The family of this 122-nucleotide RNA sequence from Brevibacillus centrosporus is "SAM riboswitch aptamer (S box leader)".
The organism belongs to Brevibacillus, within Bacteria.
Pairs were carried over by alignment from the consensus structure, which is taken from published work.
It scores 80 bits against the family's covariance model.
[Rfam]
RNA sequence: CUCUUAUCCAGAGAAGGCUGAGGGAAUGGCCCUAUGAAGCCCGGCAACCUAGCACGUGAGAUCUAUUGUCUCCCGCGCCAAGGUGCUAACUCCACCAGGUAGAGAUACCUGAUAGAUAAGAG
Numbered sequence: 001c002u003c004u005u006a007u008c009c010a011g012a013g014a015a016g017g018c019u020g021a022g023g024g025a026a027u028g029g030c031c032c033u034a035u036g037a038a039g040c041c042c043g044g045c046a047a048c049c050u051a052g053c054a055c056g057u058g059a060g061a062u063c064u065a066u067u068g069u070c071u072c073c074c075g076c077g078c079c080a081a082g083g084u085g086c087u088a089a090c091u092c093c094a095c096c097a098g099g100u101a102g103a104g105a106u107a108c109c110u111g112a113u114a115g116a117u118a119a120g121a122g
Base pairs, nucleotide, nucleotide: 001122002121003120004119005118006117007116008115013042016041017040018039022032023031024030027094028093029092043087044086045085046084048083049082050080052078053077091114096111097110098109099108100107101106